[Rfam]
Description:
A member of the RNA family "FMN riboswitch aptamer (RFN element)" from Streptococcus pneumoniae, 115 nucleotides long. Rfam describes the family as follows. The RFN element is a highly conserved domain that is found frequently in the 5'-untranslated regions of prokaryotic mRNAs that encode for flavin mononucleotide (FMN) biosynthesis and transport proteins. Pairs were carried over by alignment from the consensus structure, which is taken from published work. Rfam's curators put it in the seed alignment.
RNA sequence: AACUAUCUUCAGGGCAGGGUGCAAUUCCCUACCGGUGGUAUAGCCCACGAGCCGAAAGGCAUGAUUUGGUGAAAUUCCAAAGCCGACAGUAUAGUCUGGAUGAAAGAAGAUAAAA
Numbered sequence: 001a002a003c004u005a006u007c008u009u010c011a012g013g014g015c016a017g018g019g020u021g022c023a024a025u026u027c028c029c030u031a032c033c034g035g036u037g038g039u040a041u042a043g044c045c046c047a048c049g050a051g052c053c054g055a056a057a058g059g060c061a062u063g064a065u066u067u068g069g070u071g072a073a074a075u076u077c078c079a080a081a082g083c084c085g086a087c088a089g090u091a092u093a094g095u096c097u098g099g100a101u102g103a104a105a106g107a108a109g110a111u112a113a114a115a
Stems, first nucleotide, its partner, number of pairs: 004112007017029003031095002033085002035048004043083002065081005087098003